[Rfam]
Rfam assigns this 101-nucleotide sequence from Falsiroseomonas stagni to the family "Glycine riboswitch aptamer".
RNA sequence: UGAGCACUCGCGGGAGAGUCCGCGUCGGUCGCGAGGCCGACGUUGACGCCGAAGGAGCAACCGCCCCGGAAACUCUCAGGCCCACGUACCGCGACCGUUCU
Number, nucleotide and partner (000 for none) at each position: 001u000002g000003a000004g000005c000006a000007c000008u094009c093010g092011c091012g090013g089014g000015a000016g000017a000018g000019u000020c000021c045022g044023c000024g000025u000026c000027g000028g000029u000030c000031g000032c000033g000034a000035g000036g000037c000038c000039g000040a000041c000042g000043u000044u022045g021046a000047c000048g081049c080050c079051g077052a076053a000054g000055g075056a074057g073058c000059a000060a000061c069062c068063g000064c000065c000066c000067c000068g062069g061070a000071a000072a000073c057074u056075c055076u052077c051078a000079g050080g049081c048082c000083c000084a000085c000086g000087u000088a000089c013090c012091g011092c010093g009094a008095c000096c000097g000098u000099u000100c000101u000
This family represents the bacterial glycine riboswitch.